RNA: bZIP non canonical Hac1/Xbp1 intron
RNA sequence: CCCGAAUUCGACUUGACACAAUAUCCUGCUGCGAUGUUGUGCGACCUGCAGUGUCAGUCGGAUUCGGG
Dot-bracket structure: (((((((.(((((......((((((.......))))))....(((.......)))))))).)))))))